Description: Group II catalytic intron D1-D4-3: a 167-nucleotide RNA sequence from Smithella sp. F21. It scores 76 bits against the family's covariance model. Lineage of the source: Bacteria > Pseudomonadati > Thermodesulfobacteriota > Syntrophia > Smithella. Its family is annotated with Group II intron splicing in the Gene Ontology. Pairs were carried over by alignment from the consensus structure.
RNA sequence: GAACCCGUAAGGGGAAGCUGGAAGAAGCCGAAGGCAAACCGACGACCGUAGGAACACGAACAGACAGAGAGGCCUGCCACGGGAGGCGAGUAUGCCAGGAAAUGCGAAUGGGCUGUCAAAGAAACGUGGGUGGUAGAGUCUGGCGGCGCGUCGGGAAAGUUUGCGCA
Numbered sequence: 001g002a003a004c005c006c007g008u009a010a011g012g013g014g015a016a017g018c019u020g021g022a023a024g025a026a027g028c029c030g031a032a033g034g035c036a037a038a039c040c041g042a043c044g045a046c047c048g049u050a051g052g053a054a055c056a057c058g059a060a061c062a063g064a065c066a067g068a069g070a071g072g073c074c075u076g077c078c079a080c081g082g083g084a085g086g087c088g089a090g091u092a093u094g095c096c097a098g099g100a101a102a103u104g105c106g107a108a109u110g111g112g113c114u115g116u117c118a119a120a121g122a123a124a125c126g127u128g129g130g131u132g133g134u135a136g137a138g139u140c141u142g143g144c145g146g147c148g149c150g151u152c153g154g155g156a157a158a159g160u161u162u163g164c165g166c167a
Stems, first nucleotide, its partner, number of pairs: 004013003029165002034160002039154006046146004061142005072134003077129005090105004